tRNA: a 73-nucleotide RNA sequence from Enterobius vermicularis.
Pairs were carried over by alignment from the consensus structure, which is taken from published work.
The family's RNA type in Rfam is transfer RNA.
Lineage of the source: Eukaryota > Protostomia > Nematoda > Spirurina > Enterobius.
RNA sequence: GGCCGUCUAGCUCAGUUGGUAGAACAUCAGACUUUUAAUCUGAGGGUCGUGGGUUCGAGUCCCACGGUGGGCA
Numbered sequence: 001g002g003c004c005g006u007c008u009a010g011c012u013c014a015g016u017u018g019g020u021a022g023a024a025c026a027u028c029a030g031a032c033u034u035u036u037a038a039u040c041u042g043a044g045g046g047u048c049g050u051g052g053g054u055u056c057g058a059g060u061c062c063c064a065c066g067g068u069g070g071g072c073a
Stems, first nucleotide, its partner, number of pairs: 001072001003070005010025001012023002027043005049065005